RNA sequence: UCGGCUUCUGUUCGAUCUACUCGUGCCUGCGGACGACCUUGAGGUUCGUGAGCAAUGGCGAUAUGUGAAGCUAAAGUAAUUGUUCCUCUCGCUAUCCGGCGCGGAAUUUGUUGAUGCGAUUGGACGUCGAGGAACUAUACUU
Number, nucleotide and partner (000 for none) at each position: 001u075002c000003g072004g071005c070006u000007u000008c067009u063010g062011u000012u000013c060014g059015a000016u057017c000018u000019a000020c000021u000022c000023g000024u054025g053026c052027c000028u000029g000030c050031g000032g000033a049034c048035g047036a000037c000038c000039u000040u000041g000042a000043g000044g000045u000046u000047c035048g034049u033050g030051a000052g026053c025054a024055a000056u000057g016058g000059c014060g013061a000062u010063a009064u000065g000066u000067g008068a000069a000070g005071c004072u003073a000074a000075a001076g000077u000078a000079a000080u000081u000082g135083u134084u133085c132086c131087u130088c129089u000090c126091g125092c000093u000094a000095u124096c123097c122098g121099g120100c000101g000102c000103g000104g000105a000106a112107u000108u000109u000110g000111u000112u106113g000114a000115u000116g000117c000118g000119a000120u099121u098122g097123g096124a095125c091126g090127u000128c000129g088130a087131g086132g085133a084134a083135c082136u000137a000138u000139a000140c000141u000142u000